The family of this 85-nucleotide RNA from Streptomyces tagetis is "Streptomyces RNA 6106". Lineage of the source: Bacteria > Actinomycetota > Actinomycetes > Streptomycetaceae > Streptomyces. Identified by deep sequencing of transcriptome at the end of exponential growth phase. Appears smaller on northern blot than sequencing transcript. It scores 75 bits against the family's covariance model. The literature on the family includes a 2011 paper in RNA Biol by Vockenhuber et al., "Deep sequencing-based identification of small non-coding RNAs in Streptomyces coelicolor". The base pairs follow the family's consensus structure.
RNA sequence: GCGCCGUCCUGAACGGCGCACACGGGCCCGACCAGGCCCGGGGCGCGGGGGUGGUGCCGUGUCGGCGCAGCACCACCCCCGUACC
Dot-bracket structure: (((((((.....))))))).(.(((.(.......)..))).)..(((((((((((((.(((....))).)))))))))))))...
Numbered sequence: 001g002c003g004c005c006g007u008c009c010u011g012a013a014c015g016g017c018g019c020a021c022a023c024g025g026g027c028c029c030g031a032c033c034a035g036g037c038c039c040g041g042g043g044c045g046c047g048g049g050g051g052u053g054g055u056g057c058c059g060u061g062u063c064g065g066c067g068c069a070g071c072a073c074c075a076c077c078c079c080c081g082u083a084c085c
Stems, first nucleotide, its partner, number of pairs: 001019007021042001023040003027035001045082013059068003